[Rfam]
RNA: Bacterial antisense RNA HPnc0260
RNA sequence: UGAAAUAUCAAAAGGAAAUGAUAGAGCAUUAAAACAAGAUUUUCAUCAUAAUGCUUUUUAAUAUUUUAAAAAAUUUUUAAAAUAAUAAAACUGAAAGGUGGGCCCGGCCGGACUUGAACCGGCGACCUCCGCCG
Numbered sequence: 001u002g003a004a005a006u007a008u009c010a011a012a013a014g015g016a017a018a019u020g021a022u023a024g025a026g027c028a029u030u031a032a033a034a035c036a037a038g039a040u041u042u043u044c045a046u047c048a049u050a051a052u053g054c055u056u057u058u059u060a061a062u063a064u065u066u067u068a069a070a071a072a073a074u075u076u077u078u079a080a081a082a083u084a085a086u087a088a089a090a091c092u093g094a095a096a097g098g099u100g101g102g103c104c105c106g107g108c109c110g111g112a113c114u115u116g117a118a119c120c121g122g123c124g125a126c127c128u129c130c131g132c133c134g
Base pairs, nucleotide, nucleotide: 020049031042032041033040064071065070097130098129100127101126105124106123108122109121110120111119